[Rfam]
Shown here is a 128-nucleotide RNA sequence from Phyllostomus discolor, a member of the family "Small nucleolar RNA SNORA38". The match comes from Rfam's covariance-model search (92 bits). Rfam classes the family as an H/ACA-box small nucleolar RNA.
RNA sequence: CCCUCCUACAGGGACAUGUUGGUGUCUCACUGUCUUUGGACAUGUAAGAGUUGGAGGCAAAGAAAUGUGGACUUGGGGAAAUCUGGGGCCAGCAUGCUACCUUCAGGCUCAAGGUACAUAGAAAAAAA
Numbered sequence: 001c002c003c004u005c006c007u008a009c010a011g012g013g014a015c016a017u018g019u020u021g022g023u024g025u026c027u028c029a030c031u032g033u034c035u036u037u038g039g040a041c042a043u044g045u046a047a048g049a050g051u052u053g054g055a056g057g058c059a060a061a062g063a064a065a066u067g068u069g070g071a072c073u074u075g076g077g078g079a080a081a082u083c084u085g086g087g088g089c090c091a092g093c094a095u096g097c098u099a100c101c102u103u104c105a106g107g108c109u110c111a112a113g114g115u116a117c118a119u120a121g122a123a124a125a126a127a128a
Stems, first nucleotide, its partner, number of pairs: 002057005015044006024030002071119001073118001091109003095105002
Pairs were carried over by alignment from the consensus structure, which was predicted with RNAfold. ACA38 is a member of the H/ACA class of snoRNA that guide the sites of modification of uridines to pseudouridines.